[Rfam]
Shown here is a 118-nucleotide sequence from Ziziphus jujuba, a member of the family "Small nucleolar RNA Z278". A reference for the family is Chen et al. (2003), "The high diversity of snoRNAs in plants: identification and comparative study of 120 snoRNA genes from Oryza sativa", Nucleic Acids Res. Its family is annotated with RNA processing and nucleolus in the Gene Ontology. snoZ278 is a C/D box small nucleolar RNA. Its methylation guide targets have not been reported. The family's RNA type in Rfam is C/D-box small nucleolar RNA. A search with the family's covariance model found it, with a score of 38 bits. NCBI's taxonomy places the organism under Eukaryota, Viridiplantae, Streptophyta, eudicotyledons, Ziziphus.
RNA sequence: GCCAAUGAUGUCACAAUCCAACUUGUUUGAGGUGUAGUGGUGCCAAGUCCCUGUUUUUAUAGGGAGAACCUACUUGAUGAAAGCUACAUAACUUUGACAGAAAAAUGUAGACUGAGGA
Number, nucleotide and partner (000 for none) at each position: 001g000002c117003c116004a000005a000006u000007g000008a000009u000010g000011u000012c000013a000014c000015a000016a000017u000018c000019c000020a000021a000022c000023u000024u000025g000026u000027u000028u000029g000030a000031g000032g000033u000034g000035u000036a000037g000038u000039g000040g000041u000042g000043c000044c000045a000046a000047g000048u000049c064050c063051c062052u061053g060054u000055u000056u000057u000058u000059a000060u053061a052062g051063g050064g049065a000066g000067a000068a000069c000070c000071u000072a000073c000074u000075u000076g000077a000078u000079g000080a000081a000082a000083g000084c000085u000086a000087c000088a000089u000090a000091a000092c000093u000094u000095u000096g000097a000098c000099a000100g000101a000102a000103a000104a000105a000106u000107g000108u000109a000110g000111a000112c000113u000114g000115a000116g003117g002118a000